Rfam assigns this 53-nucleotide RNA from Acinetobacter sp. NIPH 298 to the family "Xanthine riboswitch aptamer (NMT1 RNA)". Taxonomically the source falls in Acinetobacter (Bacteria, Pseudomonadati, Pseudomonadota, Gammaproteobacteria). The sequence is in the family's curated seed alignment. The literature on the family includes a 2020 paper in RNA by Yu and Breaker, "A bacterial riboswitch class senses xanthine and uric acid to regulate genes associated with purine oxidation". Gene Ontology term of the family: purine nucleobase binding. The family's consensus secondary structure is taken from published work.
[Rfam]
RNA sequence: UUACUGAGUAUAAGCGGUCAGUGUGUACUUUCACACGGGACAUUGCUCUACAG
Numbered sequence: 001u002u003a004c005u006g007a008g009u010a011u012a013a014g015c016g017g018u019c020a021g022u023g024u025g026u027a028c029u030u031u032c033a034c035a036c037g038g039g040a041c042a043u044u045g046c047u048c049u050a051c052a053g
Stems, first nucleotide, its partner, number of pairs: 006048005015038001018040002021036005